[Rfam]
RNA sequence: GUGAAAACUUUAGCGCUAGCUCUUGCUUGUGAAGCAAGAGGACGAGGAAGAGGUUGUCGAAUUAUCAGCGGAUGCCUCUCGGCUAAGCCAUAGUCGAAAAAAGCCGAUAAACCCGCAAGGUGACUUGUGGAACAAUACGGUUUAUAAAUGGCA
Numbered sequence: 001g002u003g004a005a006a007a008c009u010u011u012a013g014c015g016c017u018a019g020c021u022c023u024u025g026c027u028u029g030u031g032a033a034g035c036a037a038g039a040g041g042a043c044g045a046g047g048a049a050g051a052g053g054u055u056g057u058c059g060a061a062u063u064a065u066c067a068g069c070g071g072a073u074g075c076c077u078c079u080c081g082g083c084u085a086a087g088c089c090a091u092a093g094u095c096g097a098a099a100a101a102a103g104c105c106g107a108u109a110a111a112c113c114c115g116c117a118a119g120g121u122g123a124c125u126u127g128u129g130g131a132a133c134a135a136u137a138c139g140g141u142u143u144a145u146a147a148a149u150g151g152c153a
Stems, first nucleotide, its partner, number of pairs: 020040008049079005057068001059066002080096006101143006113130007
Shown here is a 153-nucleotide sequence from Propionispira arboris, a member of the family "glmS glucosamine-6-phosphate activated ribozyme aptamer". NCBI's taxonomy places the organism under Bacteria, Bacillati, Selenomonadales, Selenomonadaceae, Propionispira. Pairs were carried over by alignment from the consensus structure, which is taken from published work.